The record is an 85-nucleotide sequence from Robertmurraya siralis, which matches "c-di-GMP-I riboswitch aptamer" in Rfam.
[Rfam]
RNA sequence: AUUACCUUCGGGCAAAUUUUACGAAAGUAAGAGACGCAAAGCCACGGGCCUAAGACUUAAUAGUUAUGGCAGCCGGGUUGCAAAA
Numbered sequence: 001a002u003u004a005c006c007u008u009c010g011g012g013c014a015a016a017u018u019u020u021a022c023g024a025a026a027g028u029a030a031g032a033g034a035c036g037c038a039a040a041g042c043c044a045c046g047g048g049c050c051u052a053a054g055a056c057u058u059a060a061u062a063g064u065u066a067u068g069g070c071a072g073c074c075g076g077g078u079u080g081c082a083a084a085a
Base pairs, nucleotide, nucleotide: 012037013036017032018031019030020029021028022027040079041078042077043076045075046074047073048070049069050068055064056063057062
NCBI's taxonomy places the organism under Bacteria, Bacillati, Bacilli, Caryophanales, Robertmurraya. It scores 78 bits against the family's covariance model.